[Rfam]
A member of the RNA family "MIR807 microRNA precursor family" from Oryza sativa, 178 nucleotides long. The family has 30 seed sequences and 1,514 matches in Rfam 15.1. A reference for the family is Luo et al. (2006), "Rice embryogenic calli express a unique set of microRNAs, suggesting regulatory roles of microRNAs in plant post-embryogenic development", FEBS Lett. A search with the family's covariance model found it, with a score of 142 bits.
RNA sequence: AACCACACUAUCGAUGAAUGGAUUCACCCGUGAGAUGACGUGGUUGCUCCACCUAGGAUGAUGACGUGGUAUAUCCUAUUAAUUUCCUGAGAUGGCUGGUAAUAGUAUAUCAUGUCCUCGUCCUAUGUGAAAGAGCCACAUCAUCUCGCAGGUGAAUCCGUUCAUUGAUAGUGUGGUU
Numbered sequence: 001a002a003c004c005a006c007a008c009u010a011u012c013g014a015u016g017a018a019u020g021g022a023u024u025c026a027c028c029c030g031u032g033a034g035a036u037g038a039c040g041u042g043g044u045u046g047c048u049c050c051a052c053c054u055a056g057g058a059u060g061a062u063g064a065c066g067u068g069g070u071a072u073a074u075c076c077u078a079u080u081a082a083u084u085u086c087c088u089g090a091g092a093u094g095g096c097u098g099g100u101a102a103u104a105g106u107a108u109a110u111c112a113u114g115u116c117c118u119c120g121u122c123c124u125a126u127g128u129g130a131a132a133g134a135g136c137c138a139c140a141u142c143a144u145c146u147c148g149c150a151g152g153u154g155a156a157u158c159c160g161u162u163c164a165u166u167g168a169u170a171g172u173g174u175g176g177u178u
Base pairs, nucleotide, nucleotide: 001178002177003176004175005174006173007172009170010169011168012167013166014165015164017162018161019160021158022157023156024155025154026153027152028151030149031148032147033146035144036143037142038141041138042137043136044135045134048131051128052127054125055124057122058121063116064115065114069110070109071108072107073106076105077104078103079102080101081100088099